Rfam assigns this 35-nucleotide RNA sequence from Mucilaginibacter gotjawali to the family "DUF805b RNA". The family's RNA type in Rfam is cis-regulatory element. The source organism's lineage runs through Bacteria, Bacteroidota, Sphingobacteriales, Sphingobacteriaceae and Mucilaginibacter.
[Rfam]
RNA sequence: ACCCGGUGAGCCGAAAACGGGAAACAGAGUAGGUA
Numbered sequence: 001a002c003c004c005g006g007u008g009a010g011c012c013g014a015a016a017a018c019g020g021g022a023a024a025c026a027g028a029g030u031a032g033g034u035a
Base pairs, nucleotide, nucleotide: 002021003020004019005018010034011033012032